[Rfam]
RNA sequence: GCCGAGCUUGGUCGCGCUAGCUUAUAACUCGAGCGAGGGCUUUAAUGUGGUGGAACUGUGGUUCAAUUCCUUUGGCAGGGCGACUUGGUGCAAUCUACUGGCCCGCCCGAUCCAAGUGGAGAACUGAUCCGUGAGACAUUAGCGUAGGCCUUUGUCUCGUGGGUCCUAAAGUGGAAGGUACAGCGUGAGGCUGGCUUCACAGAACAGCGACUACUUCCCUCUCUCAACAGUGGAAGGAUAACGGGCCGGUGCACGGGUCGCCCACAUUGCCUGGUGAGUUGAGCUCACUUGAACCACCACAUUU
Numbered sequence: 001g002c003c004g005a006g007c008u009u010g011g012u013c014g015c016g017c018u019a020g021c022u023u024a025u026a027a028c029u030c031g032a033g034c035g036a037g038g039g040c041u042u043u044a045a046u047g048u049g050g051u052g053g054a055a056c057u058g059u060g061g062u063u064c065a066a067u068u069c070c071u072u073u074g075g076c077a078g079g080g081c082g083a084c085u086u087g088g089u090g091c092a093a094u095c096u097a098c099u100g101g102c103c104c105g106c107c108c109g110a111u112c113c114a115a116g117u118g119g120a121g122a123a124c125u126g127a128u129c130c131g132u133g134a135g136a137c138a139u140u141a142g143c144g145u146a147g148g149c150c151u152u153u154g155u156c157u158c159g160u161g162g163g164u165c166c167u168a169a170a171g172u173g174g175a176a177g178g179u180a181c182a183g184c185g186u187g188a189g190g191c192u193g194g195c196u197u198c199a200c201a202g203a204a205c206a207g208c209g210a211c212u213a214c215u216u217c218c219c220u221c222u223c224u225c226a227a228c229a230g231u232g233g234a235a236g237g238a239u240a241a242c243g244g245g246c247c248g249g250u251g252c253a254c255g256g257g258u259c260g261c262c263c264a265c266a267u268u269g270c271c272u273g274g275u276g277a278g279u280u281g282a283g284c285u286c287a288c289u290u291g292a293a294c295c296a297c298c299a300c301a302u303u304u
Stems, first nucleotide, its partner, number of pairs: 001040003004023005010017001028037003044303010056291001058288003061284006068277002071274002074271004078263009088254003093250001098249008107237002111234004116228002119225004126165013142149002166171001173218005184209003191202003
This 304-nucleotide RNA from Morella rubra belongs to the Rfam family "Plant signal recognition particle RNA".
The base pairs follow the family's consensus structure, which is taken from published work.